[Rfam]
RNA sequence: ACGAUUGUUUACUAGGGUUCCGCCGGCACACCACCGGGCUGGUCCGAGAGUAAACCGCUUCUAUGAUGAGGAGCGACACGGAAGGAUAAAAACCUGGGAGAU
Numbered sequence: 001a002c003g004a005u006u007g008u009u010u011a012c013u014a015g016g017g018u019u020c021c022g023c024c025g026g027c028a029c030a031c032c033a034c035c036g037g038g039c040u041g042g043u044c045c046g047a048g049a050g051u052a053a054a055c056c057g058c059u060u061c062u063a064u065g066a067u068g069a070g071g072a073g074c075g076a077c078a079c080g081g082a083a084g085g086a087u088a089a090a091a092a093c094c095u096g097g098g099a100g101a102u
Base pairs, nucleotide, nucleotide: 007055008054009053010052011051012050015045016044020042021041022039023037024036025035026034056075057074058073059072060071061070062069077097079100083095084094085093
Rfam assigns this 102-nucleotide sequence from Paenibacillus silvestris to the family "Guanidine-I riboswitch aptamer".
The base pairs follow the family's consensus structure.
NCBI's taxonomy places the organism under Bacteria, Bacillati, Bacilli, Caryophanales, Paenibacillus.
About the family: This family represents a conserved RNA structure found upstream of the ykkC and yxkD genes in Bacillus subtilis and related genes in other bacteria.